This 509-nucleotide part of an RNA from Bermanella marisrubri belongs to the Rfam family "Bacterial large subunit ribosomal RNA".
[Rfam]
RNA sequence: GACUAAGCGUACACGGUGGAUGCCUUGGCAACUAGAGGCGAUGAAAGACGUUGUAGCCUGCGAUAAGCUACGGGGAGUCGGCAAACAGACUUUGAUCCGUAGAUCUCUGAAUGGGGAAACCCACUCCUUAGGGAGUAUCUUGCACUGAAUACAUAGGUGACAAGAGGCAAACCCGGUGAACUGAAACAUCUAAGUAACCGGAGGAAAAGAAAUCAAUUGAGAUUCCCUGAGUAGCGGCGAGCGAAAGGGGACCAGCCCUAAAGUGCUGGUGUAGGUAGGAGAAGGCUCUGGAAAGUGCCGCCAUAGUGGGUGAUAGCCCCGUAUCUAAAACCUUAUCCAGUAUUAUUCGAGUAGGUCGGAGCACGUGAAACUUUGACUGAACAUGGGGGGACCAUCCUCCAAGGCUAAAUACUCCUAGUUGACCGAUAGUGAACCAGUACCGUGAGGGAAAGGCGAAAAGAACCCCGGUGAGGGGAGUGAAAUAGAACCUGAAACCGUGUACGUACAAG
Number, nucleotide and partner (000 for none) at each position: 001g000002a000003c000004u000005a000006a000007g504008c503009g502010u501011a500012c499013a498014c497015g496016g495017u000018g000019g000020a000021u000022g489023c453024c452025u000026u000027g424028g423029c421030a420031a419032c418033u417034a416035g415036a413037g412038g168039c167040g000041a000042u000043g000044a000045a000046a108047g107048a106049c062050g061051u060052u000053g000054u000055a000056g000057c000058c000059u000060g051061c050062g049063a000064u000065a000066a000067g000068c102069u101070a100071c099072g098073g097074g096075g000076a000077g090078u089079c088080g000081g000082c000083a000084a000085a000086c000087a000088g079089a078090c077091u000092u000093u000094g000095a000096u074097c073098c072099g071100u070101a069102g068103a000104u000105c000106u048107c047108u046109g000110a000111a000112u000113g122114g121115g120116g000117a000118a000119a000120c115121c114122c113123a136124c135125u134126c133127c132128u000129u000130a000131g000132g127133g126134a125135g124136u123137a000138u165139c164140u163141u162142g161143c159144a158145c157146u156147g000148a000149a000150u000151a000152c000153a000154u000155a000156g146157g145158u144159g143160a000161c142162a141163a140164g139165a138166g000167g039168c038169a000170a000171a000172c203173c201174c200175g199176g198177u197178g000179a000180a000181c000182u000183g190184a189185a000186a000187c000188a000189u184190c183191u000192a000193a000194g000195u000196a000197a177198c176199c175200g174201g173202a000203g172204g000205a000206a000207a000208a000209g000210a000211a000212a000213u220214c219215a000216a000217u000218u000219g214220a213221g000222a000223u409224u251225c250226c249227c248228u247229g000230a000231g000232u000233a000234g242235c241236g000237g000238c000239g000240a000241g235242c234243g000244a000245a000246a000247g228248g227249g226250g225251a224252c000253c000254a406255g405256c404257c403258c000259u000260a000261a000262a000263g000264u342265g341266c340267u339268g338269g337270u000271g000272u000273a333274g332275g331276u330277a000278g326279g325280a324281g000282a000283a000284g299285g298286c297287u000288c295289u000290g000291g000292a000293a000294a000295g288296u000297g286298c285299c284300g000301c000302c306303a000304u000305a000306g302307u000308g320309g319310g318311u000312g000313a000314u000315a000316g000317c000318c310319c309320c308321g000322u000323a000324u280325c279326u278327a000328a000329a000330a276331c275332c274333u273334u000335a000336u000337c269338c268339a267340g266341u265342a264343u000344u000345a000346u000347u000348c000349g000350a000351g000352u000353a000354g378355g377356u376357c375358g374359g373360a372361g371362c000363a000364c000365g000366u000367g000368a000369a000370a000371c361372u360373u359374u358375g357376a356377c355378u354379g000380a000381a000382c000383a000384u000385g400386g399387g398388g397389g396390g000391a000392c000393c000394a000395u000396c389397c388398u387399c386400c385401a000402a000403g257404g256405c255406u254407a000408a000409a223410u000411a000412c037413u036414c000415c035416u034417a033418g032419u031420u030421g029422a000423c028424c027425g000426a000427u000428a000429g000430u000431g000432a000433a000434c000435c000436a000437g000438u000439a000440c447441c446442g000443u000444g000445a000446g441447g440448g000449a000450a000451a000452g024453g023454c000455g000456a000457a000458a000459a000460g000461a000462a000463c475464c474465c473466c472467g000468g000469u000470g000471a000472g466473g465474g464475g463476a000477g000478u000479g000480a000481a000482a000483u000484a000485g000486a000487a000488c000489c022490u000491g000492a000493a000494a000495c016496c015497g014498u013499g012500u011501a010502c009503g008504u007505a000506c000507a000508a000509g000
It scores 2877 bits against the family's covariance model.